[Rfam]
RNA sequence: GUAUGAUGAUGAAGCUCAUGCGUGUCAACUGACUCUAAACUCCUGGUGUUGUAGCGCCAGUAAGCGUUCUGUUUGCUGGAGCCCUCAGGACAUCAAGGACCCAGAGACAUGAUCAUGCAACACUACUUCUGAAUAC
Numbered sequence: 001g002u003a004u005g006a007u008g009a010u011g012a013a014g015c016u017c018a019u020g021c022g023u024g025u026c027a028a029c030u031g032a033c034u035c036u037a038a039a040c041u042c043c044u045g046g047u048g049u050u051g052u053a054g055c056g057c058c059a060g061u062a063a064g065c066g067u068u069c070u071g072u073u074u075g076c077u078g079g080a081g082c083c084c085u086c087a088g089g090a091c092a093u094c095a096a097g098g099a100c101c102c103a104g105a106g107a108c109a110u111g112a113u114c115a116u117g118c119a120a121c122a123c124u125a126c127u128u129c130u131g132a133a134u135a136c
Stems, first nucleotide, its partner, number of pairs: 001136004041098002044095006

A member of the RNA family "Small nucleolar RNA SNORD10" from Echeneis naucrates, 136 nucleotides long. The family has 22 seed sequences and 433 matches in Rfam 15.1. For this family Rfam cites "RNomics: an experimental approach that identifies 201 candidates for novel, small, non-messenger RNAs in mouse" (Huttenhofer et al., EMBO J, 2001). It is annotated as a C/D-box small nucleolar RNA. The family's consensus secondary structure was predicted with WAR. Its family is annotated with RNA processing and nucleolus in the Gene Ontology.